[Rfam]
RNA sequence: AGGCGAACAUUCACAUUCAUUCGUAUAUCCUCGGCGAUACGGGCUGAGAGUUUCUACCGGGAACCGCAAAUUCCCGACUACGACGAAUGUGGGAUUCCGA
Numbered sequence: 001a002g003g004c005g006a007a008c009a010u011u012c013a014c015a016u017u018c019a020u021u022c023g024u025a026u027a028u029c030c031u032c033g034g035c036g037a038u039a040c041g042g043g044c045u046g047a048g049a050g051u052u053u054c055u056a057c058c059g060g061g062a063a064c065c066g067c068a069a070a071u072u073c074c075c076g077a078c079u080a081c082g083a084c085g086a087a088u089g090u091g092g093g094a095u096u097c098c099g100a
Base pairs, nucleotide, nucleotide: 021083022082023081024080025079030048031047032046033045034044035043058076059075060074061073062072063071
RNA: Purine riboswitch aptamer